[Rfam]
RNA sequence: AUUAUUAUUACCGCCAUUAUCAGCUUGGCGGGCUAGCGCAUACGUGCACCGAACCCGCCCUGGAGGCGGGUUUU
Numbered sequence: 001a002u003u004a005u006u007a008u009u010a011c012c013g014c015c016a017u018u019a020u021c022a023g024c025u026u027g028g029c030g031g032g033c034u035a036g037c038g039c040a041u042a043c044g045u046g047c048a049c050c051g052a053a054c055c056c057g058c059c060c061u062g063g064a065g066g067c068g069g070g071u072u073u074u
Stems, first nucleotide, its partner, number of pairs: 011031006051073009
This 74-nucleotide RNA from Pseudomonas putida belongs to the Rfam family "Pseudomonas sRNA P9". The family's consensus secondary structure was predicted with RNAalifold. Rfam describes the family as follows. This small RNA (sRNA) was computationally identified in the genome of the opportunistic pathogen Pseudomonas aeruginosa and its expression verified by northern blot analysis. P9 appears to be conserved in several Pseudomonas species in addition to Bordetella spp. In both Pseudomonas and Bordetella spp P9 appears to be located upstream of a predicted threonine dehydratase gene. Taxonomically the source falls in Pseudomonas putida (Bacteria, Pseudomonadati, Pseudomonadaceae, Pseudomonas). By type it is a non-coding RNA gene. The sequence is in the family's curated seed alignment.